[Rfam]
RNA: Group II catalytic intron D1-D4-3
RNA sequence: UCCGUUUCGAGGCGGAAUCUGAAGGAAGCCGGAGGCAAAUGCACGGGCCAAGGUAUACGAACUGGGUUUGAGGCAGGAUUAGUCGGAUGAGUUGCCAACACACAACGAAAUCCUAAGCCGCCAAGAGCUAAUACUGUAAACCCCAGUGGUCGCGGGCAGACAGAUGACGUA
Numbered sequence: 001u002c003c004g005u006u007u008c009g010a011g012g013c014g015g016a017a018u019c020u021g022a023a024g025g026a027a028g029c030c031g032g033a034g035g036c037a038a039a040u041g042c043a044c045g046g047g048c049c050a051a052g053g054u055a056u057a058c059g060a061a062c063u064g065g066g067u068u069u070g071a072g073g074c075a076g077g078a079u080u081a082g083u084c085g086g087a088u089g090a091g092u093u094g095c096c097a098a099c100a101c102a103c104a105a106c107g108a109a110a111u112c113c114u115a116a117g118c119c120g121c122c123a124a125g126a127g128c129u130a131a132u133a134c135u136g137u138a139a140a141c142c143c144c145a146g147u148g149g150u151c152g153c154g155g156g157c158a159g160a161c162a163g164a165u166g167a168c169g170u171a
Stems, first nucleotide, its partner, number of pairs: 001016006030169002036163001040158003044154002046151005062146004066141002073137003078132006085113004091106004